[Rfam]
RNA sequence: GGAUAUUUGAAGGGAGCUGUCCUUAGUACGAGAGGACCGGGAUGGACAAACCUCUGGUGCACCAGUUGUCACGCCAGUGGCACAGCUGGGUAGCUAAGUUUGGAAGGGAUAAACGCUGAAGGCAUCUAAGCGUGAAGCCCCCCCUAAGAUGAGAUAUCCCACCGUUUACGGUUAAGACCCCAUGAAGACUACAUGGUAGAUAGGCCAGGUGUGCAAGUGCAGUAAUGCAUUUAGCUGACUGGUACUAAUAGGUCGAGG
Numbered sequence: 001g002g003a004u005a006u007u008u009g010a011a012g013g014g015a016g017c018u019g020u021c022c023u024u025a026g027u028a029c030g031a032g033a034g035g036a037c038c039g040g041g042a043u044g045g046a047c048a049a050a051c052c053u054c055u056g057g058u059g060c061a062c063c064a065g066u067u068g069u070c071a072c073g074c075c076a077g078u079g080g081c082a083c084a085g086c087u088g089g090g091u092a093g094c095u096a097a098g099u100u101u102g103g104a105a106g107g108g109a110u111a112a113a114c115g116c117u118g119a120a121g122g123c124a125u126c127u128a129a130g131c132g133u134g135a136a137g138c139c140c141c142c143c144c145u146a147a148g149a150u151g152a153g154a155u156a157u158c159c160c161a162c163c164g165u166u167u168a169c170g171g172u173u174a175a176g177a178c179c180c181c182a183u184g185a186a187g188a189c190u191a192c193a194u195g196g197u198a199g200a201u202a203g204g205c206c207a208g209g210u211g212u213g214c215a216a217g218u219g220c221a222g223u224a225a226u227g228c229a230u231u232u233a234g235c236u237g238a239c240u241g242g243u244a245c246u247a248a249u250a251g252g253u254c255g256a257g258g
Base pairs, nucleotide, nucleotide: 001159002158003157004156005155006154007153008152011145012144013143014142017045018044019043020042021041022040023039047102048101049100050099051098055096056095057094062089063088064087065086066085067082068081069080070079071078072077106140107139108138113133114132115131116130117129162171163170164169173256176254177253178252179251180196181195182194183193184192201247202246203245204243205242206241207240208239211235217230218229219228220227221226

This 258-nucleotide part of an RNA from Acetivibrio saccincola belongs to the Rfam family "Bacterial large subunit ribosomal RNA". The match comes from Rfam's covariance-model search (2930 bits). Rfam links the family to the GO terms ribosome and structural constituent of ribosome.